TPP riboswitch aptamer (THI element): a 115-nucleotide sequence from Corynebacterium poyangense. Its family is annotated with thiamine pyrophosphate binding in the Gene Ontology. From the family's description: Vitamin B(1) in its active form thiamin pyrophosphate (TPP) is an essential coenzyme that is synthesised by coupling of pyrimidine and thiazole moieties in bacteria. The base pairs follow the family's consensus structure, which is taken from published work.
RNA sequence: UAGGAGUUCCGCGGGAGCCACGGUGUUAUCCACAGCGUGGCUGAGAGGGCCAUGGAGGCCGACCGCCAAACCUGAUGCGGAUCAUGCCGCCGGAGGGAGGAAUGCCCCAUGUCAU
Numbered sequence: 001u002a003g004g005a006g007u008u009c010c011g012c013g014g015g016a017g018c019c020a021c022g023g024u025g026u027u028a029u030c031c032a033c034a035g036c037g038u039g040g041c042u043g044a045g046a047g048g049g050c051c052a053u054g055g056a057g058g059c060c061g062a063c064c065g066c067c068a069a070a071c072c073u074g075a076u077g078c079g080g081a082u083c084a085u086g087c088c089g090c091c092g093g094a095g096g097g098a099g100g101a102a103u104g105c106c107c108c109a110u111g112u113c114a115u
Stems, first nucleotide, its partner, number of pairs: 006103005011066004017041005048060004071096003077090004